[Rfam]
RNA sequence: UUAUAAGCAAAUUUUCACUUUUUAGAUUCAUUGAAUAACCAAUGUAUUUGGUCCAUAAUUCAGGCUAGAUACAUUAGUUAUUCAAUGAAUCUAAAAAGUAAAAAUUUGCUUAUAA
Numbered sequence: 001u002u003a004u005a006a007g008c009a010a011a012u013u014u015u016c017a018c019u020u021u022u023u024a025g026a027u028u029c030a031u032u033g034a035a036u037a038a039c040c041a042a043u044g045u046a047u048u049u050g051g052u053c054c055a056u057a058a059u060u061c062a063g064g065c066u067a068g069a070u071a072c073a074u075u076a077g078u079u080a081u082u083c084a085a086u087g088a089a090u091c092u093a094a095a096a097a098g099u100a101a102a103a104a105u106u107u108g109c110u111u112a113u114a115a
Stems, first nucleotide, its partner, number of pairs: 002114006009107005015101001017099009027089013041075004049067004

A member of the RNA family "MIR2593 microRNA precursor family" from Trifolium pratense, 115 nucleotides long.